[Rfam]
RNA sequence: CGAGUUUUUCAUGCUUGUCUCUCGGGGCUACAAACGAGUUCCUGGUAACUCUAUGCAUCGUGCCCUGGGUAAAGUCCCCGGGUCUAGGAUAGAAAGUAUCAAGGUGUAAAAUGUGCGUUUUUGUGCGCAUUCGCCUAUAUUUCGCGGAAUCUCGCCAGGCGUAGUGAUGAAGAAGGAUUCGAAAGGAUCCUGAAUCCUUGCCGUCCGGUUGUCUGCGGAAAUCUGCCAGAGUUCUUCACCUCAGAUAUGGACGAGUUGGUAGGACCUUUCCCCUCUAACUCCUCGGAGUGGGGGGAAGGAUACCGCCUACACGGAAUGGGGCUUACAUUGAGAAAUUU
Numbered sequence: 001c002g003a004g005u006u007u008u009u010c011a012u013g014c015u016u017g018u019c020u021c022u023c024g025g026g027g028c029u030a031c032a033a034a035c036g037a038g039u040u041c042c043u044g045g046u047a048a049c050u051c052u053a054u055g056c057a058u059c060g061u062g063c064c065c066u067g068g069g070u071a072a073a074g075u076c077c078c079c080g081g082g083u084c085u086a087g088g089a090u091a092g093a094a095a096g097u098a099u100c101a102a103g104g105u106g107u108a109a110a111a112u113g114u115g116c117g118u119u120u121u122u123g124u125g126c127g128c129a130u131u132c133g134c135c136u137a138u139a140u141u142u143c144g145c146g147g148a149a150u151c152u153c154g155c156c157a158g159g160c161g162u163a164g165u166g167a168u169g170a171a172g173a174a175g176g177a178u179u180c181g182a183a184a185g186g187a188u189c190c191u192g193a194a195u196c197c198u199u200g201c202c203g204u205c206c207g208g209u210u211g212u213c214u215g216c217g218g219a220a221a222u223c224u225g226c227c228a229g230a231g232u233u234c235u236u237c238a239c240c241u242c243a244g245a246u247a248u249g250g251a252c253g254a255g256u257u258g259g260u261a262g263g264a265c266c267u268u269u270c271c272c273c274u275c276u277a278a279c280u281c282c283u284c285g286g287a288g289u290g291g292g293g294g295g296a297a298g299g300a301u302a303c304c305g306c307c308u309a310c311a312c313g314g315a316a317u318g319g320g321g322c323u324u325a326c327a328u329u330g331a332g333a334a335a336u337u338u
Base pairs, nucleotide, nucleotide: 002338003337004336005335006334007333008332009331010330011329014249016247017246018245019244022068023067024066025065026064027063028062036051037050038049039048040047072324073323074322076321077320078319079318088100089099090098091097131147132146133145134144149212150211155208156207158205159204160203161201162200163199164198166196167195168194175190176189177188178187179186180185251308253306255304